[Rfam]
RNA: Nitrogen stress-induced RNA 1
Organism: Microcoleus sp. FACHB-831
RNA sequence: UGGUAGAUGCACCCUGGUUUAGCUCUAGACUCAAGUUCUAGGGCUUUUUUUU
Dot-bracket structure: .(((......)))........((((((((.(...).))))))))........
Numbered sequence: 001u002g003g004u005a006g007a008u009g010c011a012c013c014c015u016g017g018u019u020u021a022g023c024u025c026u027a028g029a030c031u032c033a034a035g036u037u038c039u040a041g042g043g044c045u046u047u048u049u050u051u052u
Stems, first nucleotide, its partner, number of pairs: 002013003022044008031035001